[Rfam]
RNA sequence: GGGUCUAUGAUAAAAAACCAAUGUCAUGAGAAGAGCUGAUGACAUAAAAAUCAUGCUCAAUAGGAUUAUGCUGAGACAC
Numbered sequence: 001g002g003g004u005c006u007a008u009g010a011u012a013a014a015a016a017a018c019c020a021a022u023g024u025c026a027u028g029a030g031a032a033g034a035g036c037u038g039a040u041g042a043c044a045u046a047a048a049a050a051u052c053a054u055g056c057u058c059a060a061u062a063g064g065a066u067u068a069u070g071c072u073g074a075g076a077c078a079c
Stems, first nucleotide, its partner, number of pairs: 001079001003077002005073001008070002
RNA: Small nucleolar RNA SNORD115
Organism: Mesocricetus auratus